[Rfam]
RNA sequence: GGAAGCGUGUGCUAGUGAUGGCACAACUGAACAUUGAUCGCUUAUCGUAGAGCUUGGCAGAUCUGCUCAGUGGGUGUUGUCACGUUGUCGUAAGCUUCAAGUAGCUUUGAGUGGUCAGACUCCCGAUUGCGCAUGCAUGUUCGUGGCUCGUCUCACGACCACGGAUUUGCACGCCUGCACGGUCCGAGUCUUCACGUCACUCCUCGAAGUACCGCGAUUUCCAAAUUGGGGGGUAAAUCGAAUAGGUCAAACGAGGUAAUUUGUCGCUUCCAUAUGCAGGCACCGCAGAUUGCGGCAUGCCAUUUUUUG
Numbered sequence: 001g002g003a004a005g006c007g008u009g010u011g012c013u014a015g016u017g018a019u020g021g022c023a024c025a026a027c028u029g030a031a032c033a034u035u036g037a038u039c040g041c042u043u044a045u046c047g048u049a050g051a052g053c054u055u056g057g058c059a060g061a062u063c064u065g066c067u068c069a070g071u072g073g074g075u076g077u078u079g080u081c082a083c084g085u086u087g088u089c090g091u092a093a094g095c096u097u098c099a100a101g102u103a104g105c106u107u108u109g110a111g112u113g114g115u116c117a118g119a120c121u122c123c124c125g126a127u128u129g130c131g132c133a134u135g136c137a138u139g140u141u142c143g144u145g146g147c148u149c150g151u152c153u154c155a156c157g158a159c160c161a162c163g164g165a166u167u168u169g170c171a172c173g174c175c176u177g178c179a180c181g182g183u184c185c186g187a188g189u190c191u192u193c194a195c196g197u198c199a200c201u202c203c204u205c206g207a208a209g210u211a212c213c214g215c216g217a218u219u220u221c222c223a224a225a226u227u228g229g230g231g232g233g234u235a236a237a238u239c240g241a242a243u244a245g246g247u248c249a250a251a252c253g254a255g256g257u258a259a260u261u262u263g264u265c266g267c268u269u270c271c272a273u274a275u276g277c278a279g280g281c282a283c284c285g286c287a288g289a290u291u292g293c294g295g296c297a298u299g300c301c302a303u304u305u306u307u308u309g
Stems, first nucleotide, its partner, number of pairs: 001271007015083005027070003032065002036063004040058003046052001279301003283295004
Dot-bracket structure: (((((((.......(((((.......(((..((..(((((((...(.....)...))).))))))..)))........))))).....................................................................................................................................................................................))))))).......(((.((((.....))))...)))........
RNA: Arthropod 7SK RNA
Organism: Temnothorax curvispinosus